RNA sequence: CUCUGAGAGUUAGUCUCUGUGAUUACUUCCUUUUAGGAAAUAUCGGAAUACUAAUGUAGA
Number, nucleotide and partner (000 for none) at each position: 001c000002u000003c000004u000005g000006a000007g000008a000009g055010u054011u053012a052013g051014u050015c000016u000017c000018u000019g000020u045021g044022a043023u042024u000025a000026c000027u039028u038029c037030c000031u000032u000033u000034u000035a000036g000037g029038a028039a027040a000041u000042a023043u022044c021045g020046g000047a000048a000049u000050a014051c013052u012053a011054a010055u009056g000057u000058a000059g000060a000
RNA: Transposase-1 RNA
Organism: Philodulcilactobacillus myokonensis